[Rfam]
RNA sequence: ACGAGAUAUGAUGAUUGAACUUUUCUUGGUUCCCAAUUGGUUUGAUUAGCCGAGAUGAUGGCAUCUUACGUAUUAGCUCUAUCUGAUCUUUC
Numbered sequence: 001a002c003g004a005g006a007u008a009u010g011a012u013g014a015u016u017g018a019a020c021u022u023u024u025c026u027u028g029g030u031u032c033c034c035a036a037u038u039g040g041u042u043u044g045a046u047u048a049g050c051c052g053a054g055a056u057g058a059u060g061g062c063a064u065c066u067u068a069c070g071u072a073u074u075a076g077c078u079c080u081a082u083c084u085g086a087u088c089u090u091u092c
Base pairs, nucleotide, nucleotide: 003090004089005088044065049062050061051060